[Rfam]
Background:
A member of the RNA family "U11 spliceosomal RNA" from Acanthochromis polyacanthus, 134 nucleotides long. The family's RNA type in Rfam is spliceosomal small nuclear RNA. Pairs were carried over by alignment from the consensus structure, which is taken from published work. Gene Ontology terms of the family: mRNA 5'-splice site recognition, pre-mRNA 5'-splice site binding and U11 snRNP. The organism belongs to Acanthochromis, within Eukaryota.
RNA sequence: AAAAAGGGCUUCUGCUAUGAUUGGCACAGGAGGGGUGGGGUAUUCCACUCCUUUUGCGGAAUCGCAAUCAAGAGAUUUCGGAAGCAUAAUUUUUAAAAUAGGGGAUGCUAGUGAUCGCUUGUCCUGGCGCCCCG
Numbered sequence: 001a002a003a004a005a006g007g008g009c010u011u012c013u014g015c016u017a018u019g020a021u022u023g024g025c026a027c028a029g030g031a032g033g034g035g036u037g038g039g040g041u042a043u044u045c046c047a048c049u050c051c052u053u054u055u056g057c058g059g060a061a062u063c064g065c066a067a068u069c070a071a072g073a074g075a076u077u078u079c080g081g082a083a084g085c086a087u088a089a090u091u092u093u094u095a096a097a098a099u100a101g102g103g104g105a106u107g108c109u110a111g112u113g114a115u116c117g118c119u120u121g122u123c124c125u126g127g128c129g130c131c132c133c134g
Base pairs, nucleotide, nucleotide: 008085009084010083011082012081013026014025015024016023017022027056028055029054030053031052032051033050034049035048036047037046038045057080058079059078060077061076062075063074102132103131104130107128108127109126110125111124113123114122115121